[Rfam]
RNA sequence: UAUCUUUGCGCCCUGAUUGAAAAACAAUCACAUACAUAAAAAUCAUUAAACCAAUAUUGGAAUG
Numbered sequence: 001u002a003u004c005u006u007u008g009c010g011c012c013c014u015g016a017u018u019g020a021a022a023a024a025c026a027a028u029c030a031c032a033u034a035c036a037u038a039a040a041a042a043u044c045a046u047u048a049a050a051c052c053a054a055u056a057u058u059g060g061a062a063u064g
Stems, first nucleotide, its partner, number of pairs: 014030006
Shown here is a 64-nucleotide sequence from Arenibacter certesii, a member of the family "S15-Flavobacteria ribosomal protein leader". It is annotated as a cis-regulatory leader. NCBI's taxonomy places the organism under Bacteria, Pseudomonadati, Flavobacteriia, Arenibacter, Arenibacter certesii. Clan: Ribosomal Protein S15 Leader clan.